[Rfam]
RNA sequence: UCACGAUGGAGGAUGUGUAACAGCCACCAUACUGAUAGACUUGCUCUGUCUUACGGCUGUGGAAAGUCUGAGAGCGCUAAUUGUUUUCUUGGCGGAACAUGCGGUGAACGCAUUGCUUGGAACCAGUAACGAGCCCAUAUAAUGGCAAGCCCUGCGAAGACCCAUUUGGGAUGGAACGGCUAAGCACGCUGCGUUUGUGAGUGAGAUACAUGUCGCCGGAUUCGUCCGGAAACUCGAUUCAGAUUACUCCUGUUCGUGA
Dot-bracket structure: ((((..(((..(((((((.(((((.........((((((.....)))))).....))))).......[[[[[((((......((.(((.....)))))(((((.....))))).((((((.............(((...............................))).........)))))).)))).................))))))).(((((....)))))........]]]]].......)))...))))
Numbered sequence: 001u002c003a004c005g006a007u008g009g010a011g012g013a014u015g016u017g018u019a020a021c022a023g024c025c026a027c028c029a030u031a032c033u034g035a036u037a038g039a040c041u042u043g044c045u046c047u048g049u050c051u052u053a054c055g056g057c058u059g060u061g062g063a064a065a066g067u068c069u070g071a072g073a074g075c076g077c078u079a080a081u082u083g084u085u086u087u088c089u090u091g092g093c094g095g096a097a098c099a100u101g102c103g104g105u106g107a108a109c110g111c112a113u114u115g116c117u118u119g120g121a122a123c124c125a126g127u128a129a130c131g132a133g134c135c136c137a138u139a140u141a142a143u144g145g146c147a148a149g150c151c152c153u154g155c156g157a158a159g160a161c162c163c164a165u166u167u168g169g170g171a172u173g174g175a176a177c178g179g180c181u182a183a184g185c186a187c188g189c190u191g192c193g194u195u196u197g198u199g200a201g202u203g204a205g206a207u208a209c210a211u212g213u214c215g216c217c218g219g220a221u222u223c224g225u226c227c228g229g230a231a232a233c234u235c236g237a238u239u240c241a242g243a244u245u246a247c248u249c250c251u252g253u254u255c256g257u258g259a
Stems, first nucleotide, its partner, number of pairs: 001259004007252003012214007020060005034050006068242005073190004083098002086096003099113005115185006134170003216229005
A member of the RNA family "Nuclear RNase P" from Trichomonas vaginalis, 259 nucleotides long. The sequence is in the family's curated seed alignment. NCBI's taxonomy places the organism under Eukaryota, Metamonada, Parabasalia, Trichomonadida, Trichomonas. The family's RNA type in Rfam is ribozyme. Ribonuclease P (RNase P) is a ubiquitous endoribonuclease, found in archaea, bacteria and eukarya as well as chloroplasts and mitochondria.